[Rfam]
RNA: mir-217 microRNA precursor family
RNA sequence: UACUGCAUCAGGAACUGAUUGGAUGAUAUUCAGGAGCCAUCAGUUCCUGAUGCACUCCC
Numbered sequence: 001u002a003c004u005g006c007a008u009c010a011g012g013a014a015c016u017g018a019u020u021g022g023a024u025g026a027u028a029u030u031c032a033g034g035a036g037c038c039a040u041c042a043g044u045u046c047c048u049g050a051u052g053c054a055c056u057c058c059c
Stems, first nucleotide, its partner, number of pairs: 004054005010048009020039003